This 377-nucleotide RNA from Stakelama tenebrarum belongs to the Rfam family "Bacterial RNase P class A".
Rfam links the family to the GO terms ribonuclease P activity, dimeric ribonuclease P complex and tRNA processing.
It scores 297 bits against the family's covariance model.
Pairs were carried over by alignment from the consensus structure, which is taken from published work.
[Rfam]
RNA sequence: CCAGAGGGCCGGGCGGCCGCGGGGCAUCCGUUUCGGAUGCCGCGAGGAAAGUCCGGGCUCCGCGGAACCACGGUGCCGGGUAACGCCCGGCGGGGGCAACCCCAGGGAAAGUGCCACAGAGAGCAGACCGCCAAUGUGCCCUUCGGGACGCAGGCAAGGGUGAAAGGGUGCGGCAAGAGCGCACCGCGCGACCGGCAACGGAAGCGGCAAGGCAAACCCCACCGGGAGCAAGACCGAAUAGGGGCGGCAUAUGGGCCUGGUUCCGGCCCGUCGCCCGGGUUGGUUGCUUGAGGCGGCGCGCGAGCGUCGUCCUAGAGGAAUGGUCGCCCAUCGCGUUCGCGCGUGGACAGAACCCGGCUUACAGGCCCUCUGGCCGC
Numbered sequence: 001c002c003a004g005a006g007g008g009c010c011g012g013g014c015g016g017c018c019g020c021g022g023g024g025c026a027u028c029c030g031u032u033u034c035g036g037a038u039g040c041c042g043c044g045a046g047g048a049a050a051g052u053c054c055g056g057g058c059u060c061c062g063c064g065g066a067a068c069c070a071c072g073g074u075g076c077c078g079g080g081u082a083a084c085g086c087c088c089g090g091c092g093g094g095g096g097c098a099a100c101c102c103c104a105g106g107g108a109a110a111g112u113g114c115c116a117c118a119g120a121g122a123g124c125a126g127a128c129c130g131c132c133a134a135u136g137u138g139c140c141c142u143u144c145g146g147g148a149c150g151c152a153g154g155c156a157a158g159g160g161u162g163a164a165a166g167g168g169u170g171c172g173g174c175a176a177g178a179g180c181g182c183a184c185c186g187c188g189c190g191a192c193c194g195g196c197a198a199c200g201g202a203a204g205c206g207g208c209a210a211g212g213c214a215a216a217c218c219c220c221a222c223c224g225g226g227a228g229c230a231a232g233a234c235c236g237a238a239u240a241g242g243g244g245c246g247g248c249a250u251a252u253g254g255g256c257c258u259g260g261u262u263c264c265g266g267c268c269c270g271u272c273g274c275c276c277g278g279g280u281u282g283g284u285u286g287c288u289u290g291a292g293g294c295g296g297c298g299c300g301c302g303a304g305c306g307u308c309g310u311c312c313u314a315g316a317g318g319a320a321u322g323g324u325c326g327c328c329c330a331u332c333g334c335g336u337u338c339g340c341g342c343g344u345g346g347a348c349a350g351a352a353c354c355c356g357g358c359u360u361a362c363a364g365g366c367c368c369u370c371u372g373g374c375c376g377c
Base pairs, nucleotide, nucleotide: 001373002372003371004370005369006368007367008366009365010364011362012328013327014326015325016324017323018322020044021043023041024040025039026038027037028036049360050359051358053357054356055355056354057353058228059227060226061225066262067261068260069259071224072223073222074221075220076090077089078088079087080086091105092103093102094101095100106219107218111217112216113213114212115211128159129158130155131154132153136151137150138149140147141146167185168184169183170182171181172180186208187206188205189204192201193200194199232285233284234283235282242276243275244274245273246272247271253269254268255267256266257265292311293310294309295308296307297306298305299304